This 95-nucleotide RNA sequence belongs to the Rfam family "pan motif". The base pairs follow the family's consensus structure, which is taken from published work. Rfam classes the family as a cis-regulatory element. A search with the family's covariance model found it, with a score of 38 bits.
[Rfam]
RNA sequence: UAUAAAAUACAGAUUAUCUGAUUUUAAUAAUAAUAAUAAUAAUAAUAACUUUUAUUUUUAUACCCUGCCUCUAUCUCCCCAAAGGGGACACAGGG
Numbered sequence: 001u002a003u004a005a006a007a008u009a010c011a012g013a014u015u016a017u018c019u020g021a022u023u024u025u026a027a028u029a030a031u032a033a034u035a036a037u038a039a040u041a042a043u044a045a046u047a048a049c050u051u052u053u054a055u056u057u058u059u060a061u062a063c064c065c066u067g068c069c070u071c072u073a074u075c076u077c078c079c080c081a082a083a084g085g086g087g088a089c090a091c092a093g094g095g
Stems, first nucleotide, its partner, number of pairs: 001029003004025005010020002066090002068087005074082001